[Rfam]
RNA sequence: GUCACAAUCCACGGGAGUCCUGAUGCGCGGGGCUGAGAGGGAGCACGCUUGCUCCGACCGUUUAACCUGAUCUGGUUCAUGCCAGCGGAGGAAGGACGACUUCAUGCAGC
Numbered sequence: 001g002u003c004a005c006a007a008u009c010c011a012c013g014g015g016a017g018u019c020c021u022g023a024u025g026c027g028c029g030g031g032g033c034u035g036a037g038a039g040g041g042a043g044c045a046c047g048c049u050u051g052c053u054c055c056g057a058c059c060g061u062u063u064a065a066c067c068u069g070a071u072c073u074g075g076u077u078c079a080u081g082c083c084a085g086c087g088g089a090g091g092a093a094g095g096a097c098g099a100c101u102u103c104a105u106g107c108a109g110c
Base pairs, nucleotide, nucleotide: 008096009095010094011061012060013059014058017033018032019031020030021029040055041054042053043052044051066091067090068089072085073084074083075082
Shown here is a 110-nucleotide RNA sequence from Leucobacter exalbidus, a member of the family "TPP riboswitch aptamer (THI element)". The family's consensus secondary structure is taken from published work. It scores 61 bits against the family's covariance model. The family has 115 seed sequences and 16,130 matches in Rfam 15.1.